[Rfam]
Nucleotides: 083
Base pairs, nucleotide, nucleotide: 001083002082003081004080005079
Number, partner (000 for none) and nucleotide at each position: 001083g002082u003081g004080a005079g006000g007000a008000u009000g010000a011000c012000g013000a014000a015000g016000a017000a018000a019000a020000u021000c022000a023000a024000u025000c026000g027000g028000a029000u030000u031000c032000c033000c034000a035000u036000u037000g038000a039000u040000u041000u042000c043000u044000a045000a046000a047000c048000g049000a050000a051000a052000g053000a054000u055000g056000a057000g058000a059000u060000c061000u062000u063000a064000a065000c066000c067000a068000g069000c070000u071000a072000c073000u074000u075000c076000u077000g078000a079005c080004u081003c082002a083001u

Shown here is an 83-nucleotide sequence from Panicum miliaceum, a member of the family "Small nucleolar RNA R12".
From the family's description: snoR12 is a C/D box small nucleolar RNA, which acts as a methylation guide for 25S ribosomal RNA in plants. snoR12 has been alternatively named snoZ44 in Arabidopsis and snoZ131 in rice.
The organism belongs to Panicum sect. Panicum, within Eukaryota.
It is annotated as a C/D-box small nucleolar RNA.
The family has 9 seed sequences and 992 matches in Rfam 15.1.
Rfam links the family to the GO terms nucleolus and RNA processing.